[Rfam]
Bacterial RNase P class A: a 384-nucleotide RNA sequence from Chlorobium phaeobacteroides.
It is one of the family's seed sequences.
The literature on the family includes a 1998 paper in Annu Rev Biochem by Frank and Pace, "Ribonuclease P: unity and diversity in a tRNA processing ribozyme".
RNA sequence: AAACCAAAGUGUGCAGUCGCCGUAUAUCUUUGAGGAUAUGCGGAGGAAAGUCCGAACAUCACAGGACAGGGUGCCGGCCGAGAGUAUUACUCAAGACCGGGAGUAGUGGCGCAAGCUCCUGCUACAGAGAGUGCAACAGAAAGUAUACCGCCCCGGCUACCGGGGUAAGGGUGAAACGGGGGUGUAAGAGACCACCAGACAUGUCAGUAAUGACCUGUGCUAUGAAAACCUCCCCGAUGCAAGGCUGAAUAGGGAAACUUUUCCGAAAGGGAGAAGAGCUGUCCGCUCAAUUUUUUGAGUUUCCGGGUGAGCCGCAUAAGAUAAAUGACUGCAGUCUUGUCGAAAGGCAAGGAACAGAAUUCGGCUUACAGCUUUGGUUUCUUU
Numbered sequence: 001a002a003a004c005c006a007a008a009g010u011g012u013g014c015a016g017u018c019g020c021c022g023u024a025u026a027u028c029u030u031u032g033a034g035g036a037u038a039u040g041c042g043g044a045g046g047a048a049a050g051u052c053c054g055a056a057c058a059u060c061a062c063a064g065g066a067c068a069g070g071g072u073g074c075c076g077g078c079c080g081a082g083a084g085u086a087u088u089a090c091u092c093a094a095g096a097c098c099g100g101g102a103g104u105a106g107u108g109g110c111g112c113a114a115g116c117u118c119c120u121g122c123u124a125c126a127g128a129g130a131g132u133g134c135a136a137c138a139g140a141a142a143g144u145a146u147a148c149c150g151c152c153c154c155g156g157c158u159a160c161c162g163g164g165g166u167a168a169g170g171g172u173g174a175a176a177c178g179g180g181g182g183u184g185u186a187a188g189a190g191a192c193c194a195c196c197a198g199a200c201a202u203g204u205c206a207g208u209a210a211u212g213a214c215c216u217g218u219g220c221u222a223u224g225a226a227a228a229c230c231u232c233c234c235c236g237a238u239g240c241a242a243g244g245c246u247g248a249a250u251a252g253g254g255a256a257a258c259u260u261u262u263c264c265g266a267a268a269g270g271g272a273g274a275a276g277a278g279c280u281g282u283c284c285g286c287u288c289a290a291u292u293u294u295u296u297g298a299g300u301u302u303c304c305g306g307g308u309g310a311g312c313c314g315c316a317u318a319a320g321a322u323a324a325a326u327g328a329c330u331g332c333a334g335u336c337u338u339g340u341c342g343a344a345a346g347g348c349a350a351g352g353a354a355c356a357g358a359a360u361u362c363g364g365c366u367u368a369c370a371g372c373u374u375u376g377g378u379u380u381c382u383u384u
Base pairs, nucleotide, nucleotide: 001380002379003378004377005376006375007374008373009372010371011369012333013332014331015330016329017328018327020043021042022041023040024039025038026037027036028035048367049366050365052364053363054362055361056360057239058238059237060236064284065283066282067281069235070234071233073232074100075099076098077097101125102123103122104121105120126231127230131229132228134224135223148170149169150166151165152164153163154162155161156160178196179195181193182192183191198220199218200217201216203214204213205212206211243313244312245311246310253304254303255302256301257300258299276288277287278286279285